[Rfam]
RNA sequence: CGUGCACACGAAAACCCAAAGAUCUGUAUUCGCCAGUAAUACGGUCUCUUGCCUGUGGUGCAGAAAUCAAGGAGGGCCUUGUCGCCUUCCAGGCGCUGCUGUGCCUCUGGAAGUGAAAUCAAGGCUCUACAAUU
Numbered sequence: 001c002g003u004g005c006a007c008a009c010g011a012a013a014a015c016c017c018a019a020a021g022a023u024c025u026g027u028a029u030u031c032g033c034c035a036g037u038a039a040u041a042c043g044g045u046c047u048c049u050u051g052c053c054u055g056u057g058g059u060g061c062a063g064a065a066a067u068c069a070a071g072g073a074g075g076g077c078c079u080u081g082u083c084g085c086c087u088u089c090c091a092g093g094c095g096c097u098g099c100u101g102u103g104c105c106u107c108u109g110g111a112a113g114u115g116a117a118a119u120c121a122a123g124g125c126u127c128u129a130c131a132a133u134u
Stems, first nucleotide, its partner, number of pairs: 003062005009057002021048002024044007074127007086113008095104002
About this RNA:
A member of the RNA family "Small nucleolar RNA SNORA68" from Scleropages formosus, 134 nucleotides long. By type it is an H/ACA-box small nucleolar RNA. For this family Rfam cites "The family of box ACA small nucleolar RNAs is defined by an evolutionarily conserved secondary structure and ubiquitous sequence elements essential for RNA accumulation" (Ganot et al., Genes Dev, 1997). Rfam's curators write: U68 is a member of the H/ACA class of small nucleolar RNAs (snoRNAs) which act as guides in the the modification of uridines to pseudouridines. Taxonomically the source falls in Scleropages (Eukaryota, Metazoa, Actinopteri, Teleostei). A search with the family's covariance model found it, with a score of 66 bits.